[Rfam]
RNA sequence: GGAUGUUCUGAAGACCUGCUCGCUAGGCCACGCACGGAGAACACUGGUUUCUCAAGGGCCCUGCGCCCGCCUAGGGGAAAGUCCCCGGACCGCCGGCAGAGAGUGCCGGGCGCUGCCAGCGCUCUUGCCCGCCCCCACCUCACGCAGCUCCCGCCGAGACGCCCCUGGGCUGAGCGGGUGAGCGCGGGGCGGGCCCUCGUCACGGCCACAGACACGCAGGUAGUGCGCAGGCGCACUAACAAAACGGGGCUCACUCUCAGGCCAUC
Numbered sequence: 001g002g003a004u005g006u007u008c009u010g011a012a013g014a015c016c017u018g019c020u021c022g023c024u025a026g027g028c029c030a031c032g033c034a035c036g037g038a039g040a041a042c043a044c045u046g047g048u049u050u051c052u053c054a055a056g057g058g059c060c061c062u063g064c065g066c067c068c069g070c071c072u073a074g075g076g077g078a079a080a081g082u083c084c085c086c087g088g089a090c091c092g093c094c095g096g097c098a099g100a101g102a103g104u105g106c107c108g109g110g111c112g113c114u115g116c117c118a119g120c121g122c123u124c125u126u127g128c129c130c131g132c133c134c135c136c137a138c139c140u141c142a143c144g145c146a147g148c149u150c151c152c153g154c155c156g157a158g159a160c161g162c163c164c165c166u167g168g169g170c171u172g173a174g175c176g177g178g179u180g181a182g183c184g185c186g187g188g189g190c191g192g193g194c195c196c197u198c199g200u201c202a203c204g205g206c207c208a209c210a211g212a213c214a215c216g217c218a219g220g221u222a223g224u225g226c227g228c229a230g231g232c233g234c235a236c237u238a239a240c241a242a243a244a245c246g247g248g249g250c251u252c253a254c255u256c257u258c259a260g261g262c263c264a265u266c
Stems, first nucleotide, its partner, number of pairs: 002266004007261005014221006023074006037053005080251002083249004095107004108124006132193003140189002143186003147183004151177004161170003223236005
Background
Shown here is a 266-nucleotide sequence from Circaetus pectoralis, a member of the family "RNase MRP". The source organism's lineage runs through Eukaryota, Gnathostomata, Sarcopterygii, Accipitrimorphae and Circaetus. The family's consensus secondary structure is taken from published work. The match comes from Rfam's covariance-model search (146 bits).